[Rfam]
A member of the RNA family "rpsB sRNA" from Phenylobacterium kunshanense, 107 nucleotides long. Rfam classes the family as a small RNA. Pairs were carried over by alignment from the consensus structure, which is taken from published work.

RNA sequence: CACACGCGGGUGUGCGGCUUGGUCGGGGAGACAUCCCGACCGGGUGCGUUCCGGUCCUCUUCGGAGGGUUUGCCCGCGGCGGUCCAACCGGAAGAAAGACGAGAUAC
Numbered sequence: 001c002a003c004a005c006g007c008g009g010g011u012g013u014g015c016g017g018c019u020u021g022g023u024c025g026g027g028g029a030g031a032c033a034u035c036c037c038g039a040c041c042g043g044g045u046g047c048g049u050u051c052c053g054g055u056c057c058u059c060u061u062c063g064g065a066g067g068g069u070u071u072g073c074c075c076g077c078g079g080c081g082g083u084c085c086a087a088c089c090g091g092a093a094g095a096a097a098g099a100c101g102a103g104a105u106a107c
Stems, first nucleotide, its partner, number of pairs: 001081001003079001005078006014047002024038002027035001056067004